[Rfam]
RNA sequence: UCAUUUUUUCAAGCGCCAGAACUAGGCCCUGGGACGUGCGGGGGCUUAGUUGACGAGGUGGAGGUUUAUCGAGGUGUUCGGCGGAUGCCUCCCGGCUGUGCACACGCAGUCGAGAGCCAUCUUCCCAAAACAUUAAGGCGACUUAAUGGACAAAGGAAGAUGGAAGGUGUGCG
Numbered sequence: 001u002c003a004u005u006u007u008u009u010c011a012a013g014c015g016c017c018a019g020a021a022c023u024a025g026g027c028c029c030u031g032g033g034a035c036g037u038g039c040g041g042g043g044g045c046u047u048a049g050u051u052g053a054c055g056a057g058g059u060g061g062a063g064g065u066u067u068a069u070c071g072a073g074g075u076g077u078u079c080g081g082c083g084g085a086u087g088c089c090u091c092c093c094g095g096c097u098g099u100g101c102a103c104a105c106g107c108a109g110u111c112g113a114g115a116g117c118c119a120u121c122u123u124c125c126c127a128a129a130a131c132a133u134u135a136a137g138g139c140g141a142c143u144u145a146a147u148g149g150a151c152a153a154a155g156g157a158a159g160a161u162g163g164a165a166g167g168u169g170u171g172c173g
Stems, first nucleotide, its partner, number of pairs: 020051008029042001060092005069081004093112006117163007131148007
Rfam assigns this 173-nucleotide sequence from Caldibacillus debilis to the family "glmS glucosamine-6-phosphate activated ribozyme aptamer". A search with the family's covariance model found it, with a score of 125 bits. The family's consensus secondary structure is taken from published work.